RNA sequence: GAGAAAUGAGGAUACAUUCUUCAUCUUACUUCUGUAGUGAAGACUUCAGAUCCAACUCUGAUCUCACACUGAUG
Numbered sequence: 001g002a003g004a005a006a007u008g009a010g011g012a013u014a015c016a017u018u019c020u021u022c023a024u025c026u027u028a029c030u031u032c033u034g035u036a037g038u039g040a041a042g043a044c045u046u047c048a049g050a051u052c053c054a055a056c057u058c059u060g061a062u063c064u065c066a067c068a069c070u071g072a073u074g
Base pairs, nucleotide, nucleotide: 001065002064003063004062
The record is a 74-nucleotide sequence from Machaerirhynchus nigripectus, which matches "Small nucleolar RNA SNORD19" in Rfam. The match comes from Rfam's covariance-model search (40 bits). The family's RNA type in Rfam is C/D-box small nucleolar RNA. NCBI's taxonomy places the organism under Eukaryota, Archelosauria, Saurischia, Theropoda, Machaerirhynchus. Rfam 15.1 lists 1,431 matches to the family in 609 species.